This 107-nucleotide sequence from Fulvivirga imtechensis belongs to the Rfam family "SAM riboswitch aptamer (S box leader)".

[Rfam]
RNA sequence: AUCUUAUCAAGAAAGGCUGAGGGAAAUGGCCCUUUGAUGCCUUAGCAACCAUCCCAUAGAGGAAAAGGUGCUAAUUCCAUCUCCGGAAGACCGGAGGCAGAUAAGUU
Dot-bracket structure: (.((((((....(((((...(((..[[[[)))......)))))((((.((.(((......)))...))))))...(]]]]((((((....))))))..))))))).)
Numbered sequence: 001a002u003c004u005u006a007u008c009a010a011g012a013a014a015g016g017c018u019g020a021g022g023g024a025a026a027u028g029g030c031c032c033u034u035u036g037a038u039g040c041c042u043u044a045g046c047a048a049c050c051a052u053c054c055c056a057u058a059g060a061g062g063a064a065a066a067g068g069u070g071c072u073a074a075u076u077c078c079a080u081c082u083c084c085g086g087a088a089g090a091c092c093g094g095a096g097g098c099a100g101a102u103a104a105g106u107u
Stems, first nucleotide, its partner, number of pairs: 001107001003105006013043005021032003026080004044072004049068002052063003076099001081096006